[Rfam]
RNA sequence: ACUUCCCAGAGAACAGCCUUAUAGGCUGAUGGCUGGUGAUUAUUUGGUCACCAGCCU
Numbered sequence: 001a002c003u004u005c006c007c008a009g010a011g012a013a014c015a016g017c018c019u020u021a022u023a024g025g026c027u028g029a030u031g032g033c034u035g036g037u038g039a040u041u042a043u044u045u046g047g048u049c050a051c052c053a054g055c056c057u
Stems, first nucleotide, its partner, number of pairs: 014028005031056010
Background:
Pseudomonas sRNA P26: a 57-nucleotide RNA sequence from Proteus myxofaciens. This small RNA (sRNA) was computationally identified in the genome of the opportunistic pathogen Pseudomonas aeruginosa and its expression verified by northern blot analysis. P26 is conserved across many Gammaproteobacteria species and appears to be consistently located between the DNA directed RNA polymerase (beta subunit) and 50S ribosomal protein L7/L12 genes. The source organism's lineage runs through Bacteria, Pseudomonadati, Enterobacterales, Proteus and Proteus myxofaciens. The base pairs follow the family's consensus structure, which was predicted with RNAalifold.